[Rfam]
RNA: Mammalian CPEB3 ribozyme
Organism: Alligator mississippiensis
RNA sequence: UGACAAGUUUGAGGUCACAGCAGAAGCACCCAUGGCACAUCCUAUCAGAUUUGAACAAAUCUGAGAAUUCUGCU
Numbered sequence: 001u002g003a004c005a006a007g008u009u010u011g012a013g014g015u016c017a018c019a020g021c022a023g024a025a026g027c028a029c030c031c032a033u034g035g036c037a038c039a040u041c042c043u044a045u046c047a048g049a050u051u052u053g054a055a056c057a058a059a060u061c062u063g064a065g066a067a068u069u070c071u072g073c074u
Stems, first nucleotide, its partner, number of pairs: 013042002019074007026038001046063007